Shown here is a 129-nucleotide sequence from Bromovirus CCMV, a member of the family "Pseudoknot of tRNA-like structure". Its family is annotated with regulation of viral genome replication in the Gene Ontology.
[Rfam]
RNA sequence: GCUGCCCUUGGGUUUUACUCCUUGAACCCUUCGGAAGAACUCUUUGGAGUUCGUACCAGUACCUCACAUAGUGAGGUAAUAAGACUGGUGGGCAGCGCCUAGUCGAAAGACUAGGUGAUCUCUAAGGAG
Numbered sequence: 001g002c003u004g005c006c007c008u009u010g011g012g013u014u015u016u017a018c019u020c021c022u023u024g025a026a027c028c029c030u031u032c033g034g035a036a037g038a039a040c041u042c043u044u045u046g047g048a049g050u051u052c053g054u055a056c057c058a059g060u061a062c063c064u065c066a067c068a069u070a071g072u073g074a075g076g077u078a079a080u081a082a083g084a085c086u087g088g089u090g091g092g093c094a095g096c097g098c099c100u101a102g103u104c105g106a107a108a109g110a111c112u113a114g115g116u117g118a119u120c121u122c123u124a125a126g127g128a129g
Base pairs, nucleotide, nucleotide: 002095003094004093005092006091007090010029011028012027013026014025015024019129021127022126023125037052038051039050040049041048042047055089056088057087058086060078061077062076063075064074065073066072096117097116098115099114100113101112102111103110104109